[Rfam]
RNA sequence: AGCCAUGUGGUGAGCAUAAAGCUAACUAUUCUUUCGCCUUUUACUAAAGAAUACCGUGUGCUCUACAUGCUAAGUGGCAAAAGAAAAAUAGUACUAAUUUUAAUUAGGAAGAA
Numbered sequence: 001a002g003c004c005a006u007g008u009g010g011u012g013a014g015c016a017u018a019a020a021g022c023u024a025a026c027u028a029u030u031c032u033u034u035c036g037c038c039u040u041u042u043a044c045u046a047a048a049g050a051a052u053a054c055c056g057u058g059u060g061c062u063c064u065a066c067a068u069g070c071u072a073a074g075u076g077g078c079a080a081a082a083g084a085a086a087a088a089u090a091g092u093a094c095u096a097a098u099u100u101u102a103a104u105u106a107g108g109a110a111g112a113a
Stems, first nucleotide, its partner, number of pairs: 003077004008067002012063007027053008098113004
Dot-bracket structure: ..((((.((..(((((((........((((((((...........))))))))...)))))))..))......))))....................((((........))))